Source information:
A member of the RNA family "Streptococcus sRNA Spd-sr37" from Streptococcus downei, 65 nucleotides long. It is annotated as a small RNA. It is one of the family's seed sequences.
[Rfam]
RNA sequence: CAAAUAUCAUGAUGGUCAAAGCUCAUGAGGAUUGUGCGUCUUUUGCGUACAGUUUUCGAGAGUUU
Numbered sequence: 001c002a003a004a005u006a007u008c009a010u011g012a013u014g015g016u017c018a019a020a021g022c023u024c025a026u027g028a029g030g031a032u033u034g035u036g037c038g039u040c041u042u043u044u045g046c047g048u049a050c051a052g053u054u055u056u057c058g059a060g061a062g063u064u065u
Base pairs, nucleotide, nucleotide: 019065020064021063022062023061024060033051034050035049036048037047038046
Background: The base pairs follow the family's consensus structure, which was predicted with WAR. The literature on the family includes a 2010 paper in J Bacteriol by Tsui et al., "Identification and characterization of noncoding small RNAs in Streptococcus pneumoniae serotype 2 strain D39".